[Rfam]
RNA sequence: AGCAGCAGCAGCAGUGCCAGGUCAGCAGCACCUGGGUUUGCAGGAUGGUCAGCAGCACCUGCUGAUCAUGCUGUU
Numbered sequence: 001a002g003c004a005g006c007a008g009c010a011g012c013a014g015u016g017c018c019a020g021g022u023c024a025g026c027a028g029c030a031c032c033u034g035g036g037u038u039u040g041c042a043g044g045a046u047g048g049u050c051a052g053c054a055g056c057a058c059c060u061g062c063u064g065a066u067c068a069u070g071c072u073g074u075u
Stems, first nucleotide, its partner, number of pairs: 001075007009064005017035006047059003
The record is a 75-nucleotide RNA from Tetradesmus obliquus, which matches "bZIP non canonical Hac1/Xbp1 intron" in Rfam. The base pairs follow the family's consensus structure, which was predicted with RNAfold. Rfam 15.1 lists 1,325 matches to the family in 1,320 species. By type it is a small RNA. A reference for the family is Iracane et al. (2018), "Identification of an Exceptionally Long Intron in the HAC1 Gene of Candida parapsilosis", mSphere. bZIP intron RNA is a non-canonical intron that was first reported in HAC1 gene in yeast and XBP1 gene in Metazoa.